[Rfam]
RNA sequence: CUCUUAUCCCGAGCUGGCGGAGGGACAGGCCCUAUGAAGCCCAGCAACCUCACAUAAAAGUGAAAGGUGCUGAACCUGAUGCAAGGCGCUCAAGCCUUGAACGAUAAGAG
Numbered sequence: 001c002u003c004u005u006a007u008c009c010c011g012a013g014c015u016g017g018c019g020g021a022g023g024g025a026c027a028g029g030c031c032c033u034a035u036g037a038a039g040c041c042c043a044g045c046a047a048c049c050u051c052a053c054a055u056a057a058a059a060g061u062g063a064a065a066g067g068u069g070c071u072g073a074a075c076c077u078g079a080u081g082c083a084a085g086g087c088g089c090u091c092a093a094g095c096c097u098u099g100a101a102c103g104a105u106a107a108g109a110g
Stems, first nucleotide, its partner, number of pairs: 001110008013042001016041003022032003026081002029076001043071004048067002050063004082099006
RNA: SAM riboswitch aptamer (S box leader)